The family of this 79-nucleotide RNA from Rubrobacter marinus is "c-di-GMP-I-GGC riboswitch aptamer". Rfam 15.1 lists 1,298 matches to the family in 717 species. Clan: c-di-GMP_I riboswitch clan. The family's consensus secondary structure is taken from published work.
Nucleotides: 079
Stems, first nucleotide, its partner, number of pairs: 003076002011036002016031006034065001039072004045068003048063003
Number, partner (000 for none) and nucleotide at each position: 001000c002000g003076c004075g005000a006000c007000a008000a009000g010000g011036g012035c013000a014000a015000a016031c017030c018029c019028g020027u021026c022000g023000c024000g025000a026021g027020a028019c029018g030017g031016g032000g033000a034065c035012g036011c037000a038000a039072a040071g041070c042069u043000u044000a045068c046067g047066g048063g049062c050061c051000u052000c053000c054000g055000a056000g057000g058000g059000g060000a061050g062049g063048c064000g065034g066047c067046c068045g069042g070041g071040c072039u073000a074000c075004c076003g077000a078000a079000c